[Rfam]
This 223-nucleotide RNA from Bradyrhizobium erythrophlei belongs to the Rfam family "permuted transfer-messenger RNA". It is annotated as a non-coding RNA gene. About the family: Bacterial tmRNA, also known as 10Sa RNA or SsrA, is named for its dual tRNA and mRNA-like properties. For this family Rfam cites "Phylogenetic analysis of tmRNA secondary structure" (Williams and Bartel, RNA, 1996). A search with the family's covariance model found it, with a score of 136 bits.

RNA sequence: GGAAAUAAAUGACCGUCGCAAUAAACCAUUCGGACCCGGGGGCAGUACCCGGCGCCUCCACCAAAACCCGUGACCUUCGCGUAUUGAACGCGGGUUUCGGCGGGGGCGAAACAGGAUCGACGAGGGCGUAAAGGGCGCGUUUUUUCUCGGUAUGGUUCCGCCGACAUCGGGCCAUGCAAUAGUUGCAAACGACAACUAUGCUCCGGUUGCUCAGGCUGCGUAA
Numbered sequence: 001g002g003a004a005a006u007a008a009a010u011g012a013c014c015g016u017c018g019c020a021a022u023a024a025a026c027c028a029u030u031c032g033g034a035c036c037c038g039g040g041g042g043c044a045g046u047a048c049c050c051g052g053c054g055c056c057u058c059c060a061c062c063a064a065a066a067c068c069c070g071u072g073a074c075c076u077u078c079g080c081g082u083a084u085u086g087a088a089c090g091c092g093g094g095u096u097u098c099g100g101c102g103g104g105g106g107c108g109a110a111a112c113a114g115g116a117u118c119g120a121c122g123a124g125g126g127c128g129u130a131a132a133g134g135g136c137g138c139g140u141u142u143u144u145u146c147u148c149g150g151u152a153u154g155g156u157u158c159c160g161c162c163g164a165c166a167u168c169g170g171g172c173c174a175u176g177c178a179a180u181a182g183u184u185g186c187a188a189a190c191g192a193c194a195a196c197u198a199u200g201c202u203c204c205g206g207u208u209g210c211u212c213a214g215g216c217u218g219c220g221u222a223a
Base pairs, nucleotide, nucleotide: 001147002146003145004144005143014137015136016135017134026126027125030123031122032121036052037051038050039049040048053108054107055106056105057104058103059102148163149162150161151160
Dot-bracket structure: (((((........((((........((..(((...(((((.......)))))(((((((..........................................)))))))............))).)).......)))).....)))))((((........))))............................................................